[Rfam]
RNA sequence: GCGCCGCAUCCAGAGCCGGGCCAUCCCGGCACCAACCUGCAUCCGAGCAAGGUGGCGUUCCCGUUCCGGGAAGAUGUGGCCGAUCCGGCAAAAAACGGACCGCUA
Numbered sequence: 001g002c003g004c005c006g007c008a009u010c011c012a013g014a015g016c017c018g019g020g021c022c023a024u025c026c027c028g029g030c031a032c033c034a035a036c037c038u039g040c041a042u043c044c045g046a047g048c049a050a051g052g053u054g055g056c057g058u059u060c061c062c063g064u065u066c067c068g069g070g071a072a073g074a075u076g077u078g079g080c081c082g083a084u085c086c087g088g089c090a091a092a093a094a095a096c097g098g099a100c101c102g103c104u105a
Base pairs, nucleotide, nucleotide: 006077007076008075009074010073015030016029017028018027019026020025032055033054036052037051038050039048040047079089080088081087082086
RNA: SAM-I/IV (S-adenosyl methionine) riboswitch aptamer
Organism: Gluconacetobacter takamatsuzukensis